[Rfam]
RNA sequence: UACGUGCUCCGGGGUCGGUGAAAGUCCGAGCCGGCGGUGACAGUCCGCGACCCGCUCCCUCCGUCAGGAGGGCGCGGUUGACCUGGUGGAAUUCCGGGACCGACGGUGAAAGUCCGGAUGGGAGGAAGCACGAG
Numbered sequence: 001u002a003c004g005u006g007c008u009c010c011g012g013g014g015u016c017g018g019u020g021a022a023a024g025u026c027c028g029a030g031c032c033g034g035c036g037g038u039g040a041c042a043g044u045c046c047g048c049g050a051c052c053c054g055c056u057c058c059c060u061c062c063g064u065c066a067g068g069a070g071g072g073c074g075c076g077g078u079u080g081a082c083c084u085g086g087u088g089g090a091a092u093u094c095c096g097g098g099a100c101c102g103a104c105g106g107u108g109a110a111a112g113u114c115c116g117g118a119u120g121g122g123a124g125g126a127a128g129c130a131c132g133a134g
Stems, first nucleotide, its partner, number of pairs: 003132006009125002016028003030113002032102002034048004043100002052077004082098005104116003